[Rfam]
RNA sequence: AAUUUAUAGAAGAAGAGGCGAGAGAACAGGCUCCUGGACCCUCUGGCAACCAUCCAAAAGGAAAGGUGCCAAAUCCUGCCCAACCGUUAUGGGGAAAUAUAAAUU
Numbered sequence: 001a002a003u004u005u006a007u008a009g010a011a012g013a014a015g016a017g018g019c020g021a022g023a024g025a026a027c028a029g030g031c032u033c034c035u036g037g038a039c040c041c042u043c044u045g046g047c048a049a050c051c052a053u054c055c056a057a058a059a060g061g062a063a064a065g066g067u068g069c070c071a072a073a074u075c076c077u078g079c080c081c082a083a084c085c086g087u088u089a090u091g092g093g094g095a096a097a098u099a100u101a102a103a104u105u
Base pairs, nucleotide, nucleotide: 001105002104003103004102005101006100007099008098014044015043016042017041018040022033023032024031027078028077029076030075045070046069047068048067050066051065053062054061055060074097079094080093081092083090
SAM riboswitch aptamer (S box leader): a 105-nucleotide RNA from Pontibacter qinzhouensis. The organism belongs to Pontibacter, within Bacteria. Its family is annotated with regulation of gene expression in the Gene Ontology.